[Rfam]
RNA sequence: CGUUGGACGCAACAUAGGGAGUGACUGAAUUAAACUUGCUGGCAAUAGGCUGGUUAAGGUGAUGAGUCAGAGGUGGUGCUCGCAGGAUGCCUCUUGAGAAAGAAGCGACCUGAACUAUCUUACCAGAUGGGACUCAUGCAACGCAGUAAAAAUUACUAAGAGUAGCAAUGCCCUGCGUUUGUAAGCAUACUCAAAUCUUACCUCCCACUUU
Dot-bracket structure: .((((....))))...(((((..((............((((((.....))))))....))..((((((.(((.[[[[.))).((((.(((..............))).))))..(((((..]]]])))))))))))...(((((((......((((.....)))).......))))))).(((((...........)))))))))).....
Source information
The family of this 211-nucleotide RNA is "manA RNA". It is annotated as a cis-regulatory element. manA RNA has been located in 5'UTR regions of genes of mannose or fructose metabolism. Has been proposed as a cis-regulatory element and as a riboswitch candidate for his complex secondary structure.